[Rfam]
RNA: Bacterial RNase P class A
Organism: Donghicola tyrosinivorans
RNA sequence: GCGGAGGGCUGGAUGGCCGCGGAAGGCGUCAGCCUUGCGAGGAAAGUCCGGACUCCACAAGGCAAUGGUGCCGGGUAACGCCCGGCCGGGGCAACCCGAGGGAAAGCGCCACAGAGAACAGACCGCCCCGUUCUUCGGGGUAAGGGUGAAACGGCGGUGUAAGAGACCACCGGGGGGCUGGUAACAGACCCCGCAUGGCAAGCCCCACCAGGAGCAAUGCCGAAUAGGGAUCCCGCGCGGCGCGACCGCAGGGUAUGACUUGGCCCAGGGAUCCGGGUUGGCAGCUAGAGGUCCGCAGGUAACUGCGGGUCAAGAUGAAUGGUCAUCCAGAGCGCAUCUGCGCUUGGACAGAAUCCGGCUUACAGGCCCUCCGCGCAU
Numbered sequence: 001g002c003g004g005a006g007g008g009c010u011g012g013a014u015g016g017c018c019g020c021g022g023a024a025g026g027c028g029u030c031a032g033c034c035u036u037g038c039g040a041g042g043a044a045a046g047u048c049c050g051g052a053c054u055c056c057a058c059a060a061g062g063c064a065a066u067g068g069u070g071c072c073g074g075g076u077a078a079c080g081c082c083c084g085g086c087c088g089g090g091g092c093a094a095c096c097c098g099a100g101g102g103a104a105a106g107c108g109c110c111a112c113a114g115a116g117a118a119c120a121g122a123c124c125g126c127c128c129c130g131u132u133c134u135u136c137g138g139g140g141u142a143a144g145g146g147u148g149a150a151a152c153g154g155c156g157g158u159g160u161a162a163g164a165g166a167c168c169a170c171c172g173g174g175g176g177g178c179u180g181g182u183a184a185c186a187g188a189c190c191c192c193g194c195a196u197g198g199c200a201a202g203c204c205c206c207a208c209c210a211g212g213a214g215c216a217a218u219g220c221c222g223a224a225u226a227g228g229g230a231u232c233c234c235g236c237g238c239g240g241c242g243c244g245a246c247c248g249c250a251g252g253g254u255a256u257g258a259c260u261u262g263g264c265c266c267a268g269g270g271a272u273c274c275g276g277g278u279u280g281g282c283a284g285c286u287a288g289a290g291g292u293c294c295g296c297a298g299g300u301a302a303c304u305g306c307g308g309g310u311c312a313a314g315a316u317g318a319a320u321g322g323u324c325a326u327c328c329a330g331a332g333c334g335c336a337u338c339u340g341c342g343c344u345u346g347g348a349c350a351g352a353a354u355c356c357g358g359c360u361u362a363c364a365g366g367c368c369c370u371c372c373g374c375g376c377a378u
Stems, first nucleotide, its partner, number of pairs: 001374010011363001012327007020039002023036005044361003048358005053214004061260002066210005071085005086100001087098004101205002106203002108199003123145002125141006153171002156168003172194001173192004178187003218283004228274006251266004291310008